Background:
Shown here is a 35-nucleotide RNA, a member of the family "DUF805b RNA". The base pairs follow the family's consensus structure, which is taken from published work.
RNA sequence: CAGGUGGAUGCCGAAAAACCUUUAACGAGUAGGCG
Numbered sequence: 001c002a003g004g005u006g007g008a009u010g011c012c013g014a015a016a017a018a019c020c021u022u023u024a025a026c027g028a029g030u031a032g033g034c035g
Stems, first nucleotide, its partner, number of pairs: 002021004010034003